The record is a 163-nucleotide RNA sequence from Inquilinus limosus, which matches "FMN riboswitch aptamer (RFN element)" in Rfam. The source organism's lineage runs through Bacteria, Alphaproteobacteria, Rhodospirillales, Rhodospirillaceae and Inquilinus. The literature on the family includes a 2009 paper in Nature by Serganov et al., "Coenzyme recognition and gene regulation by a flavin mononucleotide riboswitch". Pairs were carried over by alignment from the consensus structure, which is taken from published work. The match comes from Rfam's covariance-model search (102 bits).
RNA sequence: GGACGUUCUCAGGGCGGGGUGGAAGUCCCCACCGGCGGUGAUGGCGCAUUCCUCUCGGGGAGGCGCAUGAGCCCGCGAGCGCCUGCCGGGUCAACCUGCAGGGUCAGCAGAUUCGGUGCGAUCCCGAAGCCGACGGUCACAGUCCGGAUGAAAGAGAACGGGG
Dot-bracket structure: ...(((((((......(((.......))).[[((((((................................[[))))..((..........................))...(((((.......)))))]])).(((.....]]))).......)))))))...
Numbered sequence: 001g002g003a004c005g006u007u008c009u010c011a012g013g014g015c016g017g018g019g020u021g022g023a024a025g026u027c028c029c030c031a032c033c034g035g036c037g038g039u040g041a042u043g044g045c046g047c048a049u050u051c052c053u054c055u056c057g058g059g060g061a062g063g064c065g066c067a068u069g070a071g072c073c074c075g076c077g078a079g080c081g082c083c084u085g086c087c088g089g090g091u092c093a094a095c096c097u098g099c100a101g102g103g104u105c106a107g108c109a110g111a112u113u114c115g116g117u118g119c120g121a122u123c124c125c126g127a128a129g130c131c132g133a134c135g136g137u138c139a140c141a142g143u144c145c146g147g148a149u150g151a152a153a154g155a156g157a158a159c160g161g162g163g
Stems, first nucleotide, its partner, number of pairs: 004160007017029003031143002033132002035076004071130002079108002112128005134146003